Rfam assigns this 74-nucleotide RNA sequence from Pipistrellus kuhlii to the family "mir-6529 microRNA precursor family". Its family is annotated with RISC complex and miRNA-mediated post-transcriptional gene silencing in the Gene Ontology. Pairs were carried over by alignment from the consensus structure, which was predicted with RNAalifold. NCBI's taxonomy places the organism under Eukaryota, Bilateria, Craniata, Amniota, Pipistrellus.
[Rfam]
RNA sequence: CUGUUCUCUUGAGAGAGGUGCAGAGUGCGUCAUUGUAAAUGAAGCCUGUGCCUUUUACCUCUUUAAGAGCACAC
Numbered sequence: 001c002u003g004u005u006c007u008c009u010u011g012a013g014a015g016a017g018g019u020g021c022a023g024a025g026u027g028c029g030u031c032a033u034u035g036u037a038a039a040u041g042a043a044g045c046c047u048g049u050g051c052c053u054u055u056u057a058c059c060u061c062u063u064u065a066a067g068a069g070c071a072c073a074c
Stems, first nucleotide, its partner, number of pairs: 002073003006069005011063003014055010027045002030042003